[Rfam]
RNA: bZIP non canonical Hac1/Xbp1 intron
RNA sequence: UGGUGGCCGGGUCUGCCGAGUCCACAGCACUCAGACUACGUGCACCUCUGCAGCAGGUGCAGGCCCAGUUGUCCCCC
Numbered sequence: 001u002g003g004u005g006g007c008c009g010g011g012u013c014u015g016c017c018g019a020g021u022c023c024a025c026a027g028c029a030c031u032c033a034g035a036c037u038a039c040g041u042g043c044a045c046c047u048c049u050g051c052a053g054c055a056g057g058u059g060c061a062g063g064c065c066c067a068g069u070u071g072u073c074c075c076c077c
Stems, first nucleotide, its partner, number of pairs: 002076002005073003009066005016034001018032004043059005